Description
Mammalian CPEB3 ribozyme: a 75-nucleotide RNA from Crocodylus porosus. Rfam's curators write: The mammalian CPEB3 ribozyme is a self cleaving RNA located in the second intron of the CPEB3 gene which belongs to a family of genes regulating messenger RNA polyadenylation. This ribozyme is highly conserved and found only in mammals. The CPEB3 ribozyme is structurally and biochemically related to the human hepatitis delta virus (HDV) ribozyme and the HDV ribozyme is proposed to have arisen from the human transcriptome. There is currently only one other known self cleaving ribozyme in mammals, the CoTC motif. Taxonomically the source falls in Crocodylus (Eukaryota, Opisthokonta, Amniota, Longirostres). Rfam links the family to the GO term RNA nuclease activity. The family's consensus secondary structure is taken from published work.

[Rfam]
RNA sequence: ACUGCAAGUUUGAGGCCAUAGCAGAAGUGUUCACAACACAGCCUGUCAGAUUCCAAUAUAUUUGUGAAUUCUGCU
Numbered sequence: 001a002c003u004g005c006a007a008g009u010u011u012g013a014g015g016c017c018a019u020a021g022c023a024g025a026a027g028u029g030u031u032c033a034c035a036a037c038a039c040a041g042c043c044u045g046u047c048a049g050a051u052u053c054c055a056a057u058a059u060a061u062u063u064g065u066g067a068a069u070u071c072u073g074c075u
Stems, first nucleotide, its partner, number of pairs: 014043003020075007027039003047064005